[Rfam]
RNA sequence: CAAACUAUGUGUGACUGGCGGAGCAUGGGCAACCAUGGGGGAGCACAUAGAAGCAUUUUCGCCGUACGCCUGGGCAAAGGUA
Numbered sequence: 001c002a003a004a005c006u007a008u009g010u011g012u013g014a015c016u017g018g019c020g021g022a023g024c025a026u027g028g029g030c031a032a033c034c035a036u037g038g039g040g041g042a043g044c045a046c047a048u049a050g051a052a053g054c055a056u057u058u059u060c061g062c063c064g065u066a067c068g069c070c071u072g073g074g075c076a077a078a079g080g081u082a
Stems, first nucleotide, its partner, number of pairs: 005050008015040002017070004025036004059077001061075003

ZMP/ZTP riboswitch aptamer (pfl RNA motif): an 82-nucleotide RNA sequence from Paenibacillus sp. FSL H7-0331. Taxonomically the source falls in Paenibacillus (Bacteria, Bacillota, Caryophanales, Paenibacillaceae).